[Rfam]
RNA sequence: AGAUCAUUUCAAAGAGGGCUUUUGGAGCUGUGAAACCAAGAGCUCUUAACUCUAUGACUAAAGGUUGAAGGUCUCCAUAGGAUGCCGUAGUCAUUAAAUAGUGCUGUUUUUCUGAGGAAAUAUAAGA
Numbered sequence: 001a002g003a004u005c006a007u008u009u010c011a012a013a014g015a016g017g018g019c020u021u022u023u024g025g026a027g028c029u030g031u032g033a034a035a036c037c038a039a040g041a042g043c044u045c046u047u048a049a050c051u052c053u054a055u056g057a058c059u060a061a062a063g064g065u066u067g068a069a070g071g072u073c074u075c076c077a078u079a080g081g082a083u084g085c086c087g088u089a090g091u092c093a094u095u096a097a098a099u100a101g102u103g104c105u106g107u108u109u110u111u112c113u114g115a116g117g118a119a120a121u122a123u124a125a126g127a
Base pairs, nucleotide, nucleotide: 002059004057005056006055007054014047015046016045017044018043019042020041021040023039027036072120074118075117076116079113080112081111082110087107088106089105090104092103093102094101095100

Source information
Shown here is a 127-nucleotide RNA sequence from Felis catus, a member of the family "Small nucleolar RNA SNORA25". Taxonomically the source falls in Felis (Eukaryota, Opisthokonta, Deuterostomia, Euteleostomi). About the family: ACA25 is a member of the H/ACA class of snoRNA that guide the sites of modification of uridines to pseudouridines. The match comes from Rfam's covariance-model search (113 bits). The family's RNA type in Rfam is H/ACA-box small nucleolar RNA. Gene Ontology terms of the family: RNA processing and nucleolus. The family's consensus secondary structure was predicted with RNAfold.